[Rfam]
RNA sequence: GUCGGACCCGCACCGCGGGUGGCUUCUCCGGGCGCCCAUCCCCCGGUCACCU
Numbered sequence: 001g002u003c004g005g006a007c008c009c010g011c012a013c014c015g016c017g018g019g020u021g022g023c024u025u026c027u028c029c030g031g032g033c034g035c036c037c038a039u040c041c042c043c044c045g046g047u048c049a050c051c052u
Stems, first nucleotide, its partner, number of pairs: 006020006028046005
Dot-bracket structure: .....((((((...)))))).......(((((.........)))))......
Source information:
Shown here is a 52-nucleotide RNA sequence from Devosia limi, a member of the family "sul1 RNA". NCBI's taxonomy places the organism under Bacteria, Hyphomicrobiales, Devosiaceae, Devosia, Devosia limi.